[Rfam]
Bacteroidetes FopS (family of paralogous sRNAs): a 70-nucleotide RNA from Porphyromonas gingivicanis. The organism belongs to Porphyromonas, within Bacteria. About the family: The RNA-binding protein RbpB and BTncRNA_FopS sRNA are involved in the post-transcription regulation of polysaccharide utilisation loci (PUL). FopS sRNAs function as post-transcriptional repressors by binding to the vicinity of the start codon of the first mRNA of target PUL polycistrons, typically corresponding to the cognate SusC homolog, impeding translation of the respective glycan transporter. Its family is annotated with sRNA-mediated gene silencing in the Gene Ontology. It scores 68 bits against the family's covariance model.
RNA sequence: GUGUUUUUCAUGGUAUUAGAUUUUAAGGUUAAUGGAAAGGGUUUGUCGGGAGACAAGCCUUUUUUUUAUU
Numbered sequence: 001g002u003g004u005u006u007u008u009c010a011u012g013g014u015a016u017u018a019g020a021u022u023u024u025a026a027g028g029u030u031a032a033u034g035g036a037a038a039g040g041g042u043u044u045g046u047c048g049g050g051a052g053a054c055a056a057g058c059c060u061u062u063u064u065u066u067u068a069u070u
Base pairs, nucleotide, nucleotide: 041058042057043056044055045054046053047052